Shown here is a 79-nucleotide sequence from Laticauda laticaudata, a member of the family "Small nucleolar RNA SNORD53/SNORD92". On this family, see Kiss-Laszlo et al., Cell 1996: "Site-specific ribose methylation of preribosomal RNA: a novel function for small nucleolar RNAs". It is annotated as a C/D-box small nucleolar RNA. Taxonomically the source falls in Laticauda (Eukaryota, Gnathostomata, Tetrapoda, Colubroidea). Gene Ontology terms of the family: RNA processing and nucleolus.

[Rfam]
Nucleotides: 079
Base pairs, nucleotide, nucleotide: 001079002078003077004075
Number, partner (000 for none) and nucleotide at each position: 001079g002078u003077g004075c005000u006000g007000u008000g009000a010000u011000g012000a013000u014000c015000u016000c017000c018000u019000u020000a021000u022000u023000g024000g025000u026000u027000u028000c029000a030000c031000u032000c033000a034000u035000a036000a037000c038000u039000g040000a041000a042000u043000u044000u045000u046000c047000u048000g049000a050000u051000g052000a053000c054000a055000c056000c057000u058000u059000c060000u061000c062000u063000u064000g065000g066000c067000u068000g069000g070000g071000c072000u073000g074000a075004g076000a077003c078002a079001c